[Rfam]
Small nucleolar RNA SNORD19: a 74-nucleotide sequence from Thryothorus ludovicianus. On this family, see Huttenhofer et al., EMBO J 2001: "RNomics: an experimental approach that identifies 201 candidates for novel, small, non-messenger RNAs in mouse". Rfam links the family to the GO terms RNA processing and nucleolus. Pairs were carried over by alignment from the consensus structure.
RNA sequence: GAAAAAUGAUGAUCUUUUCUGUGUCUUAUUGUUACAGUGACGACUUCAGAUCCAACUCUGAUUUCACUCUUAGU
Number, nucleotide and partner (000 for none) at each position: 001g065002a064003a063004a062005a000006a000007u000008g000009a000010u000011g000012a000013u000014c000015u000016u000017u000018u000019c000020u000021g000022u000023g000024u000025c000026u000027u000028a000029u000030u000031g000032u000033u000034a000035c000036a000037g000038u000039g000040a000041c000042g000043a000044c000045u000046u000047c000048a000049g000050a000051u000052c000053c000054a000055a000056c000057u000058c000059u000060g000061a000062u004063u003064u002065c001066a000067c000068u000069c000070u000071u000072a000073g000074u000
The family's RNA type in Rfam is C/D-box small nucleolar RNA.